[Rfam]
RNA sequence: GCCAAAUGAUGAGCUAUAUAAAUGCGUGAGCACUAUGUGCGAGGAUGACCAAAUAUCUAUCACCCUUGACUGAUGGCU
Numbered sequence: 001g002c003c004a005a006a007u008g009a010u011g012a013g014c015u016a017u018a019u020a021a022a023u024g025c026g027u028g029a030g031c032a033c034u035a036u037g038u039g040c041g042a043g044g045a046u047g048a049c050c051a052a053a054u055a056u057c058u059a060u061c062a063c064c065c066u067u068g069a070c071u072g073a074u075g076g077c078u
Stems, first nucleotide, its partner, number of pairs: 001077004030040004